[Rfam]
RNA sequence: GAGUGCAUCUGACCGGCAAGUCUAACUCGAGCAUCGAGGCAGGCGCAGGGAAACCGAUACGGCCGCAGCCCUCACGGGCCAGGGCCACCGUCUUCAAGGGCGGGGAGCCGACCGGAUGCGACCCGAAACCAGGCGAUCUAUGCGUGGGCAAGGUGAAGCGUGCCGAAAGGCACGUGGAGGCCUGUUAGAGUUGGUGUCCUUCAAUACCCUCUCGUGACCUACGUAUAGGGGUGAAAGGCCCAUCGAGCCUGGCAACAGCUGGUU
Number, nucleotide and partner (000 for none) at each position: 001g000002a000003g000004u000005g119006c118007a117008u116009c115010u114011g113012a000013c000014c110015g109016g108017c107018a000019a000020g044021u043022c042023u041024a000025a000026c038027u037028c036029g035030a000031g000032c000033a000034u000035c029036g028037a027038g026039g000040c000041a023042g022043g021044c020045g000046c000047a000048g055049g054050g000051a000052a000053a000054c049055c048056g000057a000058u000059a000060c000061g086062g085063c084064c083065g000066c000067a000068g079069c078070c077071c076072u000073c000074a000075c000076g071077g070078g069079c068080c000081a000082g000083g064084g063085c062086c061087a000088c000089c102090g101091u100092c099093u000094u000095c000096a000097a000098g000099g092100g091101c090102g089103g000104g000105g000106a000107g017108c016109c015110g014111a000112c000113c011114g010115g009116a008117u007118g006119c005120g000121a000122c262123c261124c000125g259126a000127a000128a000129c252130c251131a250132g249133g248134c247135g000136a000137u000138c228139u227140a226141u225142g224143c223144g222145u221146g220147g219148g218149c216150a000151a183152g182153g181154u180155g000156a000157a000158g175159c174160g173161u172162g171163c170164c169165g000166a000167a000168a000169g164170g163171c162172a161173c160174g159175u158176g000177g000178a000179g000180g154181c153182c152183u151184g000185u000186u000187a000188g213189a212190g211191u000192u000193g209194g208195u000196g207197u206198c000199c000200u000201u000202c000203a000204a000205u000206a197207c196208c194209c193210u000211c190212u189213c188214g000215u000216g149217a000218c148219c147220u146221a145222c144223g143224u142225a141226u140227a139228g138229g000230g240231g239232u238233g000234a000235a000236a000237g000238g232239c231240c230241c000242a000243u000244c000245g000246a000247g134248c133249c132250u131251g130252g129253c000254a000255a000256c000257a000258g000259c125260u000261g123262g122263u000264u000
Shown here is a 264-nucleotide part of an RNA from Haloarchaeobius iranensis, a member of the family "Archaeal large subunit ribosomal RNA".